[Rfam]
RNA sequence: GGGAUAUGAUGAGUGGUCUAAUCUUGCUAUGUAUGCAAGAUGAGUGUCUGCCCCAAAGCCUGUUACGACAUGGGCACUCAUUUGAACCAUCUGAUCCU
Dot-bracket structure: ((((.........((((.....(((((.......))))).((((((((...........(...........))))))))).....)))).....))))
Numbered sequence: 001g002g003g004a005u006a007u008g009a010u011g012a013g014u015g016g017u018c019u020a021a022u023c024u025u026g027c028u029a030u031g032u033a034u035g036c037a038a039g040a041u042g043a044g045u046g047u048c049u050g051c052c053c054c055a056a057a058g059c060c061u062g063u064u065a066c067g068a069c070a071u072g073g074g075c076a077c078u079c080a081u082u083u084g085a086a087c088c089a090u091c092u093g094a095u096c097c098u
Stems, first nucleotide, its partner, number of pairs: 001098004014089004023039005041080008060072001